The record is a 92-nucleotide sequence from Ornithinimicrobium avium, which matches "SAM riboswitch aptamer (S box leader)" in Rfam. The source organism's lineage runs through Bacteria, Actinomycetota, Actinomycetes, Ornithinimicrobiaceae and Ornithinimicrobium. For this family Rfam cites "Discrimination between closely related cellular metabolites by the SAM-I riboswitch" (Montange et al., J Mol Biol, 2010). The base pairs follow the family's consensus structure, which is taken from published work.

[Rfam]
RNA sequence: CCACCAUCCAGAGCGGCCGAGAGACCUGGCUCGUCGACGCCGCAGCAACCGCCCCGCCCGGGGAAGGGUGCUCACGCCAGGACCGAUGGAGG
Numbered sequence: 001c002c003a004c005c006a007u008c009c010a011g012a013g014c015g016g017c018c019g020a021g022a023g024a025c026c027u028g029g030c031u032c033g034u035c036g037a038c039g040c041c042g043c044a045g046c047a048a049c050c051g052c053c054c055c056g057c058c059c060g061g062g063g064a065a066g067g068g069u070g071c072u073c074a075c076g077c078c079a080g081g082a083c084c085g086a087u088g089g090a091g092g
Base pairs, nucleotide, nucleotide: 001092002091004089005088006087007086008085013043014042015041016040017039021032022031023030026080027079028078029077044072045071046070047069049068050067052063053062054061076084